[Rfam]
The record is a 129-nucleotide RNA from Carlito syrichta, which matches "Small nucleolar RNA SNORA24" in Rfam. A search with the family's covariance model found it, with a score of 134 bits. The family's consensus secondary structure was predicted with RNAfold. ACA24 is a member of the H/ACA class of snoRNA that guide the sites of modification of uridines to pseudouridines.
RNA sequence: UUCCAGGUUUCCUUGGGACCUGUCAGCUAUGGCAGUCUCCCCUCCUAGCCAUGGAAGAGCAUAUCCUUGUUUAUUGGCAAAGCUGCCACCAUUUAAUUGGUAUCAGAUUCUGACGCACAAGUAACAUGC
Dot-bracket structure: .((((.(.......((((.(((((......)))))..))))........).))))............((((..(((((....(((..((((......))))..)))........)).)))..))))...
Numbered sequence: 001u002u003c004c005a006g007g008u009u010u011c012c013u014u015g016g017g018a019c020c021u022g023u024c025a026g027c028u029a030u031g032g033c034a035g036u037c038u039c040c041c042c043u044c045c046u047a048g049c050c051a052u053g054g055a056a057g058a059g060c061a062u063a064u065c066c067u068u069g070u071u072u073a074u075u076g077g078c079a080a081a082g083c084u085g086c087c088a089c090c091a092u093u094u095a096a097u098u099g100g101u102a103u104c105a106g107a108u109u110c111u112g113a114c115g116c117a118c119a120a121g122u123a124a125c126a127u128g129c
Stems, first nucleotide, its partner, number of pairs: 002055004007050001015041004020035005068126004074120003077116002083106003088101004